Annotation: This 105-nucleotide sequence from Idiomarina loihiensis belongs to the Rfam family "Tryptophan operon leader". About the family: At least 6 amino acid operons are known to be regulated by attenuation. In each a leader sequence of 150-200 bp is found upstream of the first gene in the operon. This leader sequence can assume two different secondary structures known as the terminator and the anti-terminator structure. The family's RNA type in Rfam is cis-regulatory leader.
Nucleotides: 105
Base pairs, nucleotide, nucleotide: 009046010045011044012043015040016039017038018037019036021034022033023032077098078097079096080095081094082093083092084090
Number, partner (000 for none) and nucleotide at each position: 001000c002000a003000a004000c005000a006000u007000u008000g009046g010045u011044g012043g013000u014000g015040g016039c017038a018037c019036u020000u021034c022033c023032c024000a025000a026000a027000c028000g029000a030000g031000c032023g033022g034021g035000u036019g037018g038017u039016g040015u041000a042000g043012u044011u045010g046009u047000g048000c049000g050000u051000g052000u053000a054000a055000c056000g057000u058000a059000a060000a061000u062000a063000g064000c065000u066000u067000c068000a069000c070000u071000u072000u073000g074000a075000g076000a077098a078097a079096c080095c081094c082093g083092c084090u085000c086000c087000u088000u089000u090084g091000a092083g093082c094081g095080g096079g097078u098077u099000u100000u101000u102000u103000a104000u105000u